[Rfam]
RNA sequence: GUAAGGUUGAUGAAAGAAAUCAUUCGGAUUCCCGAUGAUACGUUUAUACGUAUGAUUACUACAACCAGCUACUUCUGACUUAC
Numbered sequence: 001g002u003a004a005g006g007u008u009g010a011u012g013a014a015a016g017a018a019a020u021c022a023u024u025c026g027g028a029u030u031c032c033c034g035a036u037g038a039u040a041c042g043u044u045u046a047u048a049c050g051u052a053u054g055a056u057u058a059c060u061a062c063a064a065c066c067a068g069c070u071a072c073u074u075c076u077g078a079c080u081u082a083c
Base pairs, nucleotide, nucleotide: 001083002082003081004080005079
Shown here is an 83-nucleotide RNA from Nicotiana tabacum, a member of the family "Small nucleolar RNA R12".
Lineage of the source: Eukaryota > Viridiplantae > lamiids > Solanaceae > Nicotiana.
Pairs were carried over by alignment from the consensus structure, which was predicted with PFOLD.
From the family's description: snoR12 is a C/D box small nucleolar RNA, which acts as a methylation guide for 25S ribosomal RNA in plants. snoR12 has been alternatively named snoZ44 in Arabidopsis and snoZ131 in rice.
A reference for the family is Chen et al. (2003), "The high diversity of snoRNAs in plants: identification and comparative study of 120 snoRNA genes from Oryza sativa", Nucleic Acids Res.
Its family is annotated with RNA processing and nucleolus in the Gene Ontology.
The family's RNA type in Rfam is C/D-box small nucleolar RNA.